RNA sequence: GGAGGGGUUCCCGAGCGGUCAAAGGGGGCAGACUGUAAAUCUGUUGGCUCAGCCUUCGAAGGUUCGAAUCCUUCCCCCUCCA
Numbered sequence: 001g002g003a004g005g006g007g008u009u010c011c012c013g014a015g016c017g018g019u020c021a022a023a024g025g026g027g028g029c030a031g032a033c034u035g036u037a038a039a040u041c042u043g044u045u046g047g048c049u050c051a052g053c054c055u056u057c058g059a060a061g062g063u064u065c066g067a068a069u070c071c072u073u074c075c076c077c078c079u080c081c082a
Stems, first nucleotide, its partner, number of pairs: 001081007010026003028044005058074005